[Rfam]
RNA sequence: UUCUGAGCCGUGGCCGUGACUCCCAGCCGCACGCCCUGACGCACUUCCCCGGUGUCAGGUCAGGCGGAUGGGGAUCACGGCUCCGGCCCACACCCCC
Numbered sequence: 001u002u003c004u005g006a007g008c009c010g011u012g013g014c015c016g017u018g019a020c021u022c023c024c025a026g027c028c029g030c031a032c033g034c035c036c037u038g039a040c041g042c043a044c045u046u047c048c049c050c051g052g053u054g055u056c057a058g059g060u061c062a063g064g065c066g067g068a069u070g071g072g073g074a075u076c077a078c079g080g081c082u083c084c085g086g087c088c089c090a091c092a093c094c095c096c097c
Base pairs, nucleotide, nucleotide: 010084012082013081014080015079016078018076019075021073022072023071024070025069027067028066029065030064033061035059036058037057038056039055040054041053042052
mraW RNA: a 97-nucleotide sequence from Diploscapter pachys. The family's consensus secondary structure is taken from published work. It is annotated as a cis-regulatory element. Taxonomically the source falls in Diploscapter (Eukaryota, Opisthokonta, Bilateria, Rhabditoidea).